[Rfam]
The record is a 136-nucleotide sequence from Loxodonta africana, which matches "Small nucleolar RNA SNORA29" in Rfam. Pairs were carried over by alignment from the consensus structure, which was predicted with PFOLD. The literature on the family includes a 2001 paper in EMBO J by Huttenhofer et al., "RNomics: an experimental approach that identifies 201 candidates for novel, small, non-messenger RNAs in mouse". Rfam classes the family as an H/ACA-box small nucleolar RNA. Rfam links the family to the GO terms RNA processing and nucleolus. Lineage of the source: Eukaryota > Deuterostomia > Sarcopterygii > Afrotheria > Loxodonta. About the family: ACA29 is a member of the H/ACA class of snoRNA that guide the sites of modification of uridines to pseudouridines.
RNA sequence: UUUCCCAUUCGACUACCACUUCAGAUCUUAAUAGAUUUUAGUGGUUAUGCUUGUGGGAUAGAUUAAAAUUGCCGUGAUCUGAAGAGGGAGGGUUUUUUGUGUCCUCCUUUUGUAUGUAAUGGUUGUACAGAAAGCU
Numbered sequence: 001u002u003u004c005c006c007a008u009u010c011g012a013c014u015a016c017c018a019c020u021u022c023a024g025a026u027c028u029u030a031a032u033a034g035a036u037u038u039u040a041g042u043g044g045u046u047a048u049g050c051u052u053g054u055g056g057g058a059u060a061g062a063u064u065a066a067a068a069u070u071g072c073c074g075u076g077a078u079c080u081g082a083a084g085a086g087g088g089a090g091g092g093u094u095u096u097u098u099g100u101g102u103c104c105u106c107c108u109u110u111u112g113u114a115u116g117u118a119a120u121g122g123u124u125g126u127a128c129a130g131a132a133a134g135c136u
Stems, first nucleotide, its partner, number of pairs: 004057004016044004071123004089111004